[Rfam]
RNA: BsrC
RNA sequence: UUCUCCUAAAACAAUGAAAGCCCUACCUCUCUUUCAUCCUUGCGGCUCCGAUGACCGCGCCAGUGUGAAUCAAGUAACACGGUUUUAC
Numbered sequence: 001u002u003c004u005c006c007u008a009a010a011a012c013a014a015u016g017a018a019a020g021c022c023c024u025a026c027c028u029c030u031c032u033u034u035c036a037u038c039c040u041u042g043c044g045g046c047u048c049c050g051a052u053g054a055c056c057g058c059g060c061c062a063g064u065g066u067g068a069a070u071c072a073a074g075u076a077a078c079a080c081g082g083u084u085u086u087a088c
Stems, first nucleotide, its partner, number of pairs: 034068003039063002041059005047053001